RNA sequence: CCCUCGUCCAAAAAAUCGCUAUUCGAAGCUCACAUACGGAGAGAGUGUUUGCUCUUUCAUUUUUCACAAGCUUUGGGAAAAGUCCCCGGACAUCCACCUUCCCUCACUCGGAAGCUGGUCGCGGAAACGCGCCGCCAUAGAAGCACUGCGGCUGAUCUCGGCCGCCUGUUCCUUGCCUGUCUGGCACCGCCCGGCUCAUCACUCCAAAGUCGGCCGACUUCUCUGGUACAAGGUUUGCAGCAGUCCGAUUCCCGGGCCGGGGCCAUCAUCAGGACGAAGAUAUGAGUCCGCGCUCUGGCUGUCUGGGACGUGAUUUGCUGUCCUUGUUGCCAGGGUAACUGGCCGAUGGUGGGCUGCCGCUGGUCCGGUCUGGGCUGGGGAGCGUUAUGGCUGGCUCGAGAGAUUUCGUCACGAUUUCACAGAAAUGCGAUUGCUCGCCGUCUGGAAACAGCGGCGAGUAACUCGACGGGGCUCAUUCUUGGUGCGAGG
Numbered sequence: 001c002c003c004u005c006g007u008c009c010a011a012a013a014a015a016u017c018g019c020u021a022u023u024c025g026a027a028g029c030u031c032a033c034a035u036a037c038g039g040a041g042a043g044a045g046u047g048u049u050u051g052c053u054c055u056u057u058c059a060u061u062u063u064u065c066a067c068a069a070g071c072u073u074u075g076g077g078a079a080a081a082g083u084c085c086c087c088g089g090a091c092a093u094c095c096a097c098c099u100u101c102c103c104u105c106a107c108u109c110g111g112a113a114g115c116u117g118g119u120c121g122c123g124g125a126a127a128c129g130c131g132c133c134g135c136c137a138u139a140g141a142a143g144c145a146c147u148g149c150g151g152c153u154g155a156u157c158u159c160g161g162c163c164g165c166c167u168g169u170u171c172c173u174u175g176c177c178u179g180u181c182u183g184g185c186a187c188c189g190c191c192c193g194g195c196u197c198a199u200c201a202c203u204c205c206a207a208a209g210u211c212g213g214c215c216g217a218c219u220u221c222u223c224u225g226g227u228a229c230a231a232g233g234u235u236u237g238c239a240g241c242a243g244u245c246c247g248a249u250u251c252c253c254g255g256g257c258c259g260g261g262g263c264c265a266u267c268a269u270c271a272g273g274a275c276g277a278a279g280a281u282a283u284g285a286g287u288c289c290g291c292g293c294u295c296u297g298g299c300u301g302u303c304u305g306g307g308a309c310g311u312g313a314u315u316u317g318c319u320g321u322c323c324u325u326g327u328u329g330c331c332a333g334g335g336u337a338a339c340u341g342g343c344c345g346a347u348g349g350u351g352g353g354c355u356g357c358c359g360c361u362g363g364u365c366c367g368g369u370c371u372g373g374g375c376u377g378g379g380g381a382g383c384g385u386u387a388u389g390g391c392u393g394g395c396u397c398g399a400g401a402g403a404u405u406u407c408g409u410c411a412c413g414a415u416u417u418c419a420c421a422g423a424a425a426u427g428c429g430a431u432u433g434c435u436c437g438c439c440g441u442c443u444g445g446a447a448a449c450a451g452c453g454g455c456g457a458g459u460a461a462c463u464c465g466a467c468g469g470g471g472c473u474c475a476u477u478c479u480u481g482g483u484g485c486g487a488g489g
Base pairs, nucleotide, nucleotide: 002489003488004487005486006485007484008482009481010480011479014432015431016430017429018428019427023076024075025074026073027072028071029070039058040057041056042055043054044053045052081473082472084471085470086469087468120131121130122129123128249403250402255397256396258394262392264390272385275382434458435457436456437455438454439453440452441451
This 489-nucleotide RNA sequence from Chaetomium globosum belongs to the Rfam family "RNase MRP". The family's RNA type in Rfam is ribozyme. Taxonomically the source falls in Chaetomium globosum (Eukaryota, Fungi, Dikarya, Pezizomycotina). Rfam describes the family as follows. RNase MRP is an enzymatically active ribonucleoprotein with two distinct roles in eukaryotes. In mitochondria it plays a direct role in the initiation of mitochondrial DNA replication. In the nucleus it is involved in precursor rRNA processing, where it cleaves the internal transcribed spacer 1 between 18S and 5.8S rRNAs. Despite distinct functions, RNase MRP has been shown to be evolutionarily related to RNase P. Like eukaryotic RNase P, RNase MRP is not catalytically active without associated protein subunits. The family is grouped with related families in Rfam's "RNaseP clan".